[Rfam]
RNA sequence: CUGAAGGGUCAGCAAGGGUGUGUGACUCUACUAUCUGAACUGUGCGAUUUGAUUGCCUCGUAAUGAGGCGUACAUAAAGCUUUUGAUUGUAGAGUCAUGCACCUCUACUGGGCCUUCAG
Numbered sequence: 001c002u003g004a005a006g007g008g009u010c011a012g013c014a015a016g017g018g019u020g021u022g023u024g025a026c027u028c029u030a031c032u033a034u035c036u037g038a039a040c041u042g043u044g045c046g047a048u049u050u051g052a053u054u055g056c057c058u059c060g061u062a063a064u065g066a067g068g069c070g071u072a073c074a075u076a077a078a079g080c081u082u083u084u085g086a087u088u089g090u091a092g093a094g095u096c097a098u099g100c101a102c103c104u105c106u107a108c109u110g111g112g113c114c115u116u117c118a119g
Stems, first nucleotide, its partner, number of pairs: 003117004009111003016104006023097004028092004033087003
A member of the RNA family "MIR1223 microRNA precursor family" from Physcomitrium patens, 119 nucleotides long. Its family is annotated with RISC complex and miRNA-mediated post-transcriptional gene silencing in the Gene Ontology. For this family Rfam cites "Common functions for diverse small RNAs of land plants" (Axtell et al., Plant Cell, 2007). The organism belongs to Physcomitrium, within Eukaryota. The sequence is in the family's curated seed alignment.